[Rfam]
RNA sequence: AUACGUGUAGGGUGGAGAUGCACAACCGUCGGACAGCGUAGCUACAGGCAUUACCCAGACGCUUCACUUUCGUCCGCACCGACCGGUUGAUUCCUCCCCUGACUGAGUGCUUCUGUCACCACAGCAAACAGGAGCGUUGUCGCGGCCCCGCCCACGUUGGCCUGGCCGCUGGACACCGGCGUGAUUUACGACCACGCCGUACGCGCCCUGACACCGACCGUGAGAGUCGUGUGUGCCAAACGCCGUUUCCGGCAGCCCGGAAACCA
Numbered sequence: 001a002u003a004c005g006u007g008u009a010g011g012g013u014g015g016a017g018a019u020g021c022a023c024a025a026c027c028g029u030c031g032g033a034c035a036g037c038g039u040a041g042c043u044a045c046a047g048g049c050a051u052u053a054c055c056c057a058g059a060c061g062c063u064u065c066a067c068u069u070u071c072g073u074c075c076g077c078a079c080c081g082a083c084c085g086g087u088u089g090a091u092u093c094c095u096c097c098c099c100u101g102a103c104u105g106a107g108u109g110c111u112u113c114u115g116u117c118a119c120c121a122c123a124g125c126a127a128a129c130a131g132g133a134g135c136g137u138u139g140u141c142g143c144g145g146c147c148c149c150g151c152c153c154a155c156g157u158u159g160g161c162c163u164g165g166c167c168g169c170u171g172g173a174c175a176c177c178g179g180c181g182u183g184a185u186u187u188a189c190g191a192c193c194a195c196g197c198c199g200u201a202c203g204c205g206c207c208c209u210g211a212c213a214c215c216g217a218c219c220g221u222g223a224g225a226g227u228c229g230u231g232u233g234u235g236c237c238a239a240a241c242g243c244c245g246u247u248u249c250c251g252g253c254a255g256c257c258c259g260g261a262a263a264c265c266a
Stems, first nucleotide, its partner, number of pairs: 014097004023089006029082004036077003041049002058074004098132004135203003139174003142169004147165002150162001152160002178198006211234004215229004245264007
RNA: rne-II RNA